The record is an 87-nucleotide RNA, which matches "c-di-GMP-II-GAG riboswitch aptamer" in Rfam.
[Rfam]
RNA sequence: UCUUCCCUGGGAGUCAUUGACACAUCGGAUGAUUUAUCGGUCACCGCCGUCCGAUGCGAGCGACUGGUGAGACCGGCCCAUGAACUU
Numbered sequence: 001u002c003u004u005c006c007c008u009g010g011g012a013g014u015c016a017u018u019g020a021c022a023c024a025u026c027g028g029a030u031g032a033u034u035u036a037u038c039g040g041u042c043a044c045c046g047c048c049g050u051c052c053g054a055u056g057c058g059a060g061c062g063a064c065u066g067g068u069g070a071g072a073c074c075g076g077c078c079c080a081u082g083a084a085c086u087u
Stems, first nucleotide, its partner, number of pairs: 004084001006082001008080004015060001023056008039074002041070005
Pairs were carried over by alignment from the consensus structure, which is taken from published work. The sequence is in the family's curated seed alignment. A reference for the family is Weinberg et al. (2017), "Bioinformatic analysis of riboswitch structures uncovers variant classes with altered ligand specificity", Proc Natl Acad Sci U S A.